Rfam assigns this 172-nucleotide RNA sequence from Cloacibacillus evryensis to the family "Group II catalytic intron D1-D4-3". Pairs were carried over by alignment from the consensus structure.
RNA sequence: UCCAUCGUGAGGUGGAAUCUGAAGGAAGCCGGAGGCAAACCCUCGGUCCGACGAACAGGAACCGCAUGUGAGGCAUUAUGGGACGGACGAGUCUACCCCCCAAGACAAAGUCCUACACUGCACGAAUCCCAUGGUGUAAAUGCGGCGGAUAUAUGAGGAGAAAGUUUAUGUG
Number, nucleotide and partner (000 for none) at each position: 001u016002c015003c014004a013005u012006c011007g000008u000009g000010a000011g006012g005013u004014g003015g002016a001017a000018u000019c000020u000021g000022a000023a000024g000025g000026a000027a000028g000029c000030c170031g169032g000033a000034g000035g165036c164037a000038a000039a000040c000041c158042c157043u156044c155045g154046g150047u149048c148049c147050g146051a000052c000053g000054a000055a000056c000057a000058g000059g000060a000061a000062c145063c144064g143065c142066a141067u140068g000069u000070g000071a000072g000073g137074c136075a135076u000077u133078a132079u131080g130081g129082g128083a127084c000085g113086g112087a111088c110089g000090a000091g106092u105093c104094u103095a000096c000097c000098c000099c000100c000101c000102a000103a094104g093105a092106c091107a000108a000109a000110g088111u087112c086113c085114u000115a000116c000117a000118c000119u000120g000121c000122a000123c000124g000125a000126a000127u083128c082129c081130c080131a079132u078133g077134g000135u075136g074137u073138a000139a000140a067141u066142g065143c064144g063145g062146c050147g049148g048149a047150u046151a000152u000153a000154u045155g044156a043157g042158g041159a000160g000161a000162a000163a000164g036165u035166u000167u000168a000169u031170g030171u000172g000